Shown here is a 76-nucleotide RNA sequence from Eleutherodactylus coqui, a member of the family "Small nucleolar RNA snR60/Z15/Z230/Z193/J17". The pairing is the family consensus, mapped onto this sequence. A search with the family's covariance model found it, with a score of 51 bits.
[Rfam]
RNA sequence: CAGGAUCAUAUGAUGAUUUCAUAGUUCAUCUGACUGACGGUGAUGAACAAUCUUUCGCUCCUAUCUGAUUAUCCUG
Numbered sequence: 001c002a003g004g005a006u007c008a009u010a011u012g013a014u015g016a017u018u019u020c021a022u023a024g025u026u027c028a029u030c031u032g033a034c035u036g037a038c039g040g041u042g043a044u045g046a047a048c049a050a051u052c053u054u055u056c057g058c059u060c061c062u063a064u065c066u067g068a069u070u071a072u073c074c075u076g
Stems, first nucleotide, its partner, number of pairs: 004073003008069001